[Rfam]
Rfam assigns this 385-nucleotide part of an RNA from Candidatus Methanomassiliicoccus intestinalis to the family "Archaeal large subunit ribosomal RNA". A search with the family's covariance model found it, with a score of 2771 bits.
RNA sequence: AGGAGUAGCAGCAAAGAAUGGUGAGAAUCCAUUCCGCCGCAGGGGCCAGGGUUCCUCGGCAAUGUUCGUCAGCCGAGGGUUAGCCGAUCCUAAGACAACUCUUAAUCGAAGUUGCCGAAAGGGAAACAGGUUAAUAUUCCUGUGCUAUAAUAGUCAUCGCCUAAUAUGAAACAUAUCCGGAUAAGCUGAGCAGGGGUGUCAAUCUGUUCAAGCGUCGAAGCCUUUGGAGUACCGUAAUGGUGAGAAUUAGGUGAAUGCGCGAGUAGGCAAGCGAAGGCUUGCUUCAGCUGAUUCCAGGUAUCAAUGAAAAUUGUAUUAGUUUAGUCUGUUAUGUUCGUACCAAGAACUGACACAGGUGCCCCUAGGUGAGAAGCCUAAGGCGUGU
Numbered sequence: 001a002g003g004a005g006u007a008g009c010a011g012c013a014a015a016g017a018a019u020g021g022u023g024a025g026a027a028u029c030c031a032u033u034c035c036g037c038c039g040c041a042g043g044g045g046c047c048a049g050g051g052u053u054c055c056u057c058g059g060c061a062a063u064g065u066u067c068g069u070c071a072g073c074c075g076a077g078g079g080u081u082a083g084c085c086g087a088u089c090c091u092a093a094g095a096c097a098a099c100u101c102u103u104a105a106u107c108g109a110a111g112u113u114g115c116c117g118a119a120a121g122g123g124a125a126a127c128a129g130g131u132u133a134a135u136a137u138u139c140c141u142g143u144g145c146u147a148u149a150a151u152a153g154u155c156a157u158c159g160c161c162u163a164a165u166a167u168g169a170a171a172c173a174u175a176u177c178c179g180g181a182u183a184a185g186c187u188g189a190g191c192a193g194g195g196g197u198g199u200c201a202a203u204c205u206g207u208u209c210a211a212g213c214g215u216c217g218a219a220g221c222c223u224u225u226g227g228a229g230u231a232c233c234g235u236a237a238u239g240g241u242g243a244g245a246a247u248u249a250g251g252u253g254a255a256u257g258c259g260c261g262a263g264u265a266g267g268c269a270a271g272c273g274a275a276g277g278c279u280u281g282c283u284u285c286a287g288c289u290g291a292u293u294c295c296a297g298g299u300a301u302c303a304a305u306g307a308a309a310a311u312u313g314u315a316u317u318a319g320u321u322u323a324g325u326c327u328g329u330u331a332u333g334u335u336c337g338u339a340c341c342a343a344g345a346a347c348u349g350a351c352a353c354a355g356g357u358g359c360c361c362c363u364a365g366g367u368g369a370g371a372a373g374c375c376u377a378a379g380g381c382g383u384g385u
Stems, first nucleotide, its partner, number of pairs: 016034006035382004043361004049341002054078006063071002085337003089122002094116001096114004100109002126143005146333008167313003173301005179295003184289005189208006212260004221251003231241003272277001347356002363377004
Pairs were carried over by alignment from the consensus structure, which is taken from published work. The source organism's lineage runs through Archaea, Thermoplasmatota, Thermoplasmata, Methanomassiliicoccus and Candidatus Methanomassiliicoccus intestinalis.